Rfam assigns this 66-nucleotide RNA from Lentibacillus cibarius to the family "Bacillaceae-1 RNA". The match comes from Rfam's covariance-model search (35 bits).
RNA sequence: CUUUAACGCUGGCCGGCUAAGUUCGGCACCGUCCUGGCGGGCGCCGGCACUAGUACGUCCUGUACG
Numbered sequence: 001c002u003u004u005a006a007c008g009c010u011g012g013c014c015g016g017c018u019a020a021g022u023u024c025g026g027c028a029c030c031g032u033c034c035u036g037g038c039g040g041g042c043g044c045c046g047g048c049a050c051u052a053g054u055a056c057g058u059c060c061u062g063u064a065c066g
Stems, first nucleotide, its partner, number of pairs: 012048006027039001029037002053065004